[Rfam]
RNA: Small nucleolar RNA U3
RNA sequence: AAGACUAUACUUUCAGGCAUCAUUUCUAUAGCUUGUUACUGGAGAAGUUUCUCUGAACAUGUGGAUCACCGGAAACCAUGAGGAGGAGGCACAGCGUUCUGAGUGUGAAGCCAGCUCUUGGCGUUGCUUCACUGCAACUGCUGUUCACCAUCGAUGAUCGUUCUUCUCUUCCUUCGGGAGAGUAAGAGGGAGAGAAUGCAGUCUGAGUGGA
Number, nucleotide and partner (000 for none) at each position: 001a000002a040003g039004a000005c000006u035007a034008u000009a000010c031011u030012u000013u000014c000015a027016g026017g025018c000019a000020u000021c000022a000023u000024u000025u017026c016027u015028a000029u000030a011031g010032c000033u000034u007035g006036u000037u000038a000039c003040u002041g000042g000043a000044g000045a000046a000047g000048u000049u065050u064051c063052u000053c000054u061055g000056a000057a000058c000059a000060u000061g054062u000063g051064g050065a049066u000067c000068a000069c000070c000071g000072g000073a000074a000075a000076c210077c209078a208079u207080g000081a000082g000083g000084a000085g000086g000087a000088g000089g000090c000091a000092c000093a000094g199095c198096g197097u196098u195099c189100u188101g000102a000103g161104u160105g159106u000107g000108a000109a000110g000111c000112c000113a000114g148115c000116u000117c000118u000119u143120g142121g141122c140123g138124u137125u136126g135127c134128u000129u000130c000131a000132c000133u000134g127135c126136a125137a124138c123139u000140g122141c121142u120143g119144u000145u000146c000147a000148c114149c000150a000151u000152c000153g000154a000155u000156g000157a000158u000159c105160g104161u103162u000163c000164u185165u184166c182167u181168c180169u179170u178171c177172c176173u000174u000175c000176g172177g171178g170179a169180g168181a167182g166183u000184a165185a164186g000187a000188g100189g099190g000191a000192g000193a000194g000195a098196a097197u096198g095199c094200a000201g000202u000203c000204u000205g000206a000207g079208u078209g077210g076211a000